[Rfam]
RNA sequence: GCCGUUUCUUCAGUAGCUGUGCCGUGGGAGUGACGUCAUCGCAGCUCCGGCCAAUCACAGCGCUGGAGCCGCGAUGACGUCACUCCCACGGCACAGCUACUGAAGAAACGGC
Numbered sequence: 001g002c003c004g005u006u007u008c009u010u011c012a013g014u015a016g017c018u019g020u021g022c023c024g025u026g027g028g029a030g031u032g033a034c035g036u037c038a039u040c041g042c043a044g045c046u047c048c049g050g051c052c053a054a055u056c057a058c059a060g061c062g063c064u065g066g067a068g069c070c071g072c073g074a075u076g077a078c079g080u081c082a083c084u085c086c087c088a089c090g091g092c093a094c095a096g097c098u099a100c101u102g103a104a105g106a107a108a109c110g111g112c
Stems, first nucleotide, its partner, number of pairs: 001112007010103010024089019

Shown here is a 112-nucleotide sequence from Aquarana catesbeiana, a member of the family "mir-252 microRNA precursor family". The literature on the family includes a 2006 paper in Cell by Ruby et al., "Large-scale sequencing reveals 21U-RNAs and additional microRNAs and endogenous siRNAs in C. elegans". The organism belongs to Aquarana, within Eukaryota.